[Rfam]
RNA sequence: GUUCAAUACGGCGAUGGAGUUCGCCAUAACCGCCUUUCGGGGCUAAUGACUCCUACCCAUGA
Numbered sequence: 001g002u003u004c005a006a007u008a009c010g011g012c013g014a015u016g017g018a019g020u021u022c023g024c025c026a027u028a029a030c031c032g033c034c035u036u037u038c039g040g041g042g043c044u045a046a047u048g049a050c051u052c053c054u055a056c057c058c059a060u061g062a
Base pairs, nucleotide, nucleotide: 010025011024012023013022016053017052018051019050020049021048032043033042034041035040
RNA: Fluoride riboswitch aptamer (crcB RNA motif)
Organism: Saccharibacillus sacchari